Source information
The record is a 74-nucleotide sequence from Hibiscus trionum, which matches "Small nucleolar RNA Z105" in Rfam.
RNA sequence: CAGGCAUAAUGAGGAUGAAUUCACUAAUCAGUAUCUGAUUAUUAUGAUGAUUAGUAACCUCCUACUCAUUCUGA
Numbered sequence: 001c002a003g004g005c006a007u008a009a010u011g012a013g014g015a016u017g018a019a020u021u022c023a024c025u026a027a028u029c030a031g032u033a034u035c036u037g038a039u040u041a042u043u044a045u046g047a048u049g050a051u052u053a054g055u056a057a058c059c060u061c062c063u064a065c066u067c068a069u070u071c072u073g074a
Stems, first nucleotide, its partner, number of pairs: 006069002009066001032049001035046001
By type it is a C/D-box small nucleolar RNA. The family has 11 seed sequences and 621 matches in Rfam 15.1. Taxonomically the source falls in Hibiscus (Eukaryota, Mesangiospermae, eudicotyledons, Malvoideae). The literature on the family includes a 2003 paper in Nucleic Acids Res by Chen et al., "The high diversity of snoRNAs in plants: identification and comparative study of 120 snoRNA genes from Oryza sativa". The family's consensus secondary structure was predicted with CMfinder.